[Rfam]
RNA sequence: CUGUGGCUCGAUUCAAGUAAUCCAGGAUAGGCUGUUAGUCAGGCUCCGGCCUGUCCUUGACUACUUGGCUCAGGACCCAG
Numbered sequence: 001c002u003g004u005g006g007c008u009c010g011a012u013u014c015a016a017g018u019a020a021u022c023c024a025g026g027a028u029a030g031g032c033u034g035u036u037a038g039u040c041a042g043g044c045u046c047c048g049g050c051c052u053g054u055c056c057u058u059g060a061c062u063a064c065u066u067g068g069c070u071c072a073g074g075a076c077c078c079a080g
Stems, first nucleotide, its partner, number of pairs: 002079002005076001007074002010071002014067006021060002024057010
The record is an 80-nucleotide sequence from Chiloscyllium punctatum, which matches "mir-26 microRNA precursor family" in Rfam.